[Rfam]
RNA sequence: AUAAAAGCAGGGAUCUAUUGCCAAAUUAUAUUGUGAAUCGAUCUCUCGUAAACAUCAGGGAAAUAGAGCUGGGCAUCGUUAUUGGGUGAACCUCUUGAAUUCUUACAUGAUGGACAAGGUUCAGUAAACGAAGCUAUAUUU
Numbered sequence: 001a002u003a004a005a006a007g008c009a010g011g012g013a014u015c016u017a018u019u020g021c022c023a024a025a026u027u028a029u030a031u032u033g034u035g036a037a038u039c040g041a042u043c044u045c046u047c048g049u050a051a052a053c054a055u056c057a058g059g060g061a062a063a064u065a066g067a068g069c070u071g072g073g074c075a076u077c078g079u080u081a082u083u084g085g086g087u088g089a090a091c092c093u094c095u096u097g098a099a100u101u102c103u104u105a106c107a108u109g110a111u112g113g114a115c116a117a118g119g120u121u122c123a124g125u126a127a128a129c130g131a132a133g134c135u136a137u138a139u140u141u
Base pairs, nucleotide, nucleotide: 005055007053011044012043014041015040017038018037019036072135073134074133076131077130078129079128080127087123088122089121090120091119092118093117
This 141-nucleotide RNA sequence from Lactuca saligna belongs to the Rfam family "Small nucleolar RNA snoR74". NCBI's taxonomy places the organism under Eukaryota, Streptophyta, Streptophytina, Lactucinae, Lactuca. On this family, see Marker et al., Curr Biol 2002: "Experimental RNomics: identification of 140 candidates for small non-messenger RNAs in the plant Arabidopsis thaliana". The family has 9 seed sequences and 1,404 matches in Rfam 15.1. Its family is annotated with nucleolus and RNA processing in the Gene Ontology.